This 96-nucleotide RNA from Candidatus Thioglobus autotrophicus belongs to the Rfam family "Bacterial small signal recognition particle RNA". Pairs were carried over by alignment from the consensus structure, which is taken from published work. It is annotated as a non-coding RNA gene. The signal recognition particle (SRP) is a universally conserved ribonucleoprotein involved in the co-translational targeting of proteins to membranes.

RNA sequence: UUAGGGUGCGCCGACAAUGAAUGACUACAAACCCCGCCAGGCCCGGAAGGGAGCAACGGUAGUAGUUUUUUCAGGUGUUGGAUGUUAUUCUGAGUG
Numbered sequence: 001u002u003a004g005g006g007u008g009c010g011c012c013g014a015c016a017a018u019g020a021a022u023g024a025c026u027a028c029a030a031a032c033c034c035c036g037c038c039a040g041g042c043c044c045g046g047a048a049g050g051g052a053g054c055a056a057c058g059g060u061a062g063u064a065g066u067u068u069u070u071u072c073a074g075g076u077g078u079u080g081g082a083u084g085u086u087a088u089u090c091u092g093a094g095u096g
Base pairs, nucleotide, nucleotide: 004090005089006088007087008086011081012080013079014078015075018073019072020071021070023067024066025065026064027063028062034059035058036057042051043050044049